[Rfam]
RNA: CRISPR RNA direct repeat element
RNA sequence: GUUUCAGCAGGACCCUUGUAGGGUUGAAGC
Dot-bracket structure: ..........(((((.....))))).....